[Rfam]
Rfam assigns this 76-nucleotide sequence from Propithecus coquereli to the family "Small nucleolar RNA SNORD115". On this family, see Cavaille et al., Proc Natl Acad Sci U S A 2000: "Identification of brain-specific and imprinted small nucleolar RNA genes exhibiting an unusual genomic organization".

RNA sequence: GAGUCAAUGAUGAGAUGUUAUCUUGAAGAGAAAUGAUGAUGCAAAAAUCAAGCUCAAGUGGAUUAUACUGAAGCCC
Numbered sequence: 001g002a003g004u005c006a007a008u009g010a011u012g013a014g015a016u017g018u019u020a021u022c023u024u025g026a027a028g029a030g031a032a033a034u035g036a037u038g039a040u041g042c043a044a045a046a047a048u049c050a051a052g053c054u055c056a057a058g059u060g061g062a063u064u065a066u067a068c069u070g071a072a073g074c075c076c
Base pairs, nucleotide, nucleotide: 001076003074004073005070006069008067009066
Source information: Pairs were carried over by alignment from the consensus structure, which was predicted with PFOLD. Gene Ontology terms of the family: RNA processing and nucleolus. The family has 32 seed sequences and 3,387 matches in Rfam 15.1. The match comes from Rfam's covariance-model search (67 bits). Lineage of the source: Eukaryota > Chordata > Boreoeutheria > Strepsirrhini > Propithecus.